Source information
SraG RNA: a 176-nucleotide RNA sequence from Sodalis-like symbiont of Philaenus spumarius.
RNA sequence: CUUCUCAUCGCAUCCUCACGACUAAUGACAAUCCUUAUCCUAACCGAUAAAGCCUCUCAUUAGCCGCACGAACCUCAGCAAUGGAAGAAUCUACUUAGCGUUCAUCGCGAUGCGGACUAGACCAGCCACGGGAUGAGCGUUGCCUAGAAGAAAGGGGCCGCAUAAGGCCCCUUUCU
Numbered sequence: 001c002u003u004c005u006c007a008u009c010g011c012a013u014c015c016u017c018a019c020g021a022c023u024a025a026u027g028a029c030a031a032u033c034c035u036u037a038u039c040c041u042a043a044c045c046g047a048u049a050a051a052g053c054c055u056c057u058c059a060u061u062a063g064c065c066g067c068a069c070g071a072a073c074c075u076c077a078g079c080a081a082u083g084g085a086a087g088a089a090u091c092u093a094c095u096u097a098g099c100g101u102u103c104a105u106c107g108c109g110a111u112g113c114g115g116a117c118u119a120g121a122c123c124a125g126c127c128a129c130g131g132g133a134u135g136a137g138c139g140u141u142g143c144c145u146a147g148a149a150g151a152a153a154g155g156g157g158c159c160g161c162a163u164a165a166g167g168c169c170c171c172u173u174u175c176u
Stems, first nucleotide, its partner, number of pairs: 001087004006083002010079002017070001020067001022063007094132003154171006
This RNA was discovered in E. coli during a large scale screen. Taxonomically the source falls in Sodalis (Bacteria, Pseudomonadota, Enterobacterales, Bruguierivoracaceae). Its family is annotated with mRNA binding and sRNA-mediated gene silencing in the Gene Ontology. It is annotated as a small RNA.